[Rfam]
RNA sequence: CUCUUAUCCAGAGUAGGUGGAGGGACAGGCCCGAAGAAACCCAGCAACCGUCUAGAAAUAAGACAUGGUGCUAACCUGAUGCAAGGAUCGUUUCCUUGAGCGAUAAGAA
Numbered sequence: 001c002u003c004u005u006a007u008c009c010a011g012a013g014u015a016g017g018u019g020g021a022g023g024g025a026c027a028g029g030c031c032c033g034a035a036g037a038a039a040c041c042c043a044g045c046a047a048c049c050g051u052c053u054a055g056a057a058a059u060a061a062g063a064c065a066u067g068g069u070g071c072u073a074a075c076c077u078g079a080u081g082c083a084a085g086g087a088u089c090g091u092u093u094c095c096u097u098g099a100g101c102g103a104u105a106a107g108a109a
Stems, first nucleotide, its partner, number of pairs: 002108007013042001016041003022032003026081002029077001043072004048068002050064004082098006